[Rfam]
RNA: Small nucleolar RNA SNORA69
Organism: Nothoprocta ornata
RNA sequence: AAAGCAGGCUGCAAUUGCAGUGCUCCCUGCCGUGGGGCGGCUGCCAUUUCCCUGCUGAGAGCAACGCCGUUAGCGCCGGCUUUGGCUUUGCCUCCCUCCUGGCGAAGCCGCUUGCCCUUAGCGCCUACAAGG
Numbered sequence: 001a002a003a004g005c006a007g008g009c010u011g012c013a014a015u016u017g018c019a020g021u022g023c024u025c026c027c028u029g030c031c032g033u034g035g036g037g038c039g040g041c042u043g044c045c046a047u048u049u050c051c052c053u054g055c056u057g058a059g060a061g062c063a064a065c066g067c068c069g070u071u072a073g074c075g076c077c078g079g080c081u082u083u084g085g086c087u088u089u090g091c092c093u094c095c096c097u098c099c100u101g102g103c104g105a106a107g108c109c110g111c112u113u114g115c116c117c118u119u120a121g122c123g124c125c126u127a128c129a130a131g132g
Base pairs, nucleotide, nucleotide: 003056004055005054006053007052008051018043019042020041021040024037025036026035066125068123069122070121071120072119073118075116083110084109085108086107087106088105089104090103091102092101